[Rfam]
RNA sequence: AUCACAAAAAAAGUUGAUUGUCACGUGUCACAUUCUGAUUGGACGAUGAACAGAAAAUUGUUAGAGUUGGCUCUUGGGCGCACCUUUUCAUGUCCAAUUAGAACAUGACACGUUACAGUCAACAUUU
Numbered sequence: 001a002u003c004a005c006a007a008a009a010a011a012a013g014u015u016g017a018u019u020g021u022c023a024c025g026u027g028u029c030a031c032a033u034u035c036u037g038a039u040u041g042g043a044c045g046a047u048g049a050a051c052a053g054a055a056a057a058u059u060g061u062u063a064g065a066g067u068u069g070g071c072u073c074u075u076g077g078g079c080g081c082a083c084c085u086u087u088u089c090a091u092g093u094c095c096a097a098u099u100a101g102a103a104c105a106u107g108a109c110a111c112g113u114u115a116c117a118g119u120c121a122a123c124a125u126u127u
Base pairs, nucleotide, nucleotide: 020116021115023113025111026110029107030106033103034102035101036100038098039097040096041095042094043093044092045091
RNA: MIR1520 microRNA precursor family
Organism: Glycine max